[Rfam]
Nucleotides: 090
Stems, first nucleotide, its partner, number of pairs: 002088002039048003
Number, partner (000 for none) and nucleotide at each position: 001000a002088g003087c004000u005000a006000u007000g008000a009000u010000g011000a012000u013000a014000a015000u016000g017000u018000g019000c020000u021000a022000a023000u024000g025000c026000c027000u028000g029000a030000c031000u032000u033000g034000g035000u036000a037000u038000u039048g040047a041046c042000u043000a044000a045000g046041g047040u048039c049000a050000u051000u052000g053000a054000c055000c056000a057000a058000g059000a060000a061000a062000u063000g064000a065000u066000c067000a068000a069000g070000a071000u072000u073000a074000a075000u076000c077000u078000u079000c080000u081000c082000u083000c084000u085000g086000a087003g088002c089000u090000g

Annotation
This 90-nucleotide sequence from Mytilus edulis belongs to the Rfam family "Z30 small nucleolar RNA". It scores 58 bits against the family's covariance model. The literature on the family includes a 2002 paper in Mol Cell Biol by Galardi et al., "Purified box C/D snoRNPs are able to reproduce site-specific 2'-O-methylation of target RNA in vitro". Lineage of the source: Eukaryota > Opisthokonta > Lophotrochozoa > Mytilidae > Mytilus. The family's consensus secondary structure was predicted with PFOLD.